[Rfam]
RNA: Nitrogen stress-induced RNA 1
RNA sequence: UGGUAGAUGCACCCUGAUGAUUCACCCCUGGCGAUUAUGUCAGGGGUUUUUUGU
Numbered sequence: 001u002g003g004u005a006g007a008u009g010c011a012c013c014c015u016g017a018u019g020a021u022u023c024a025c026c027c028c029u030g031g032c033g034a035u036u037a038u039g040u041c042a043g044g045g046g047u048u049u050u051u052u053g054u
Stems, first nucleotide, its partner, number of pairs: 002013003025046009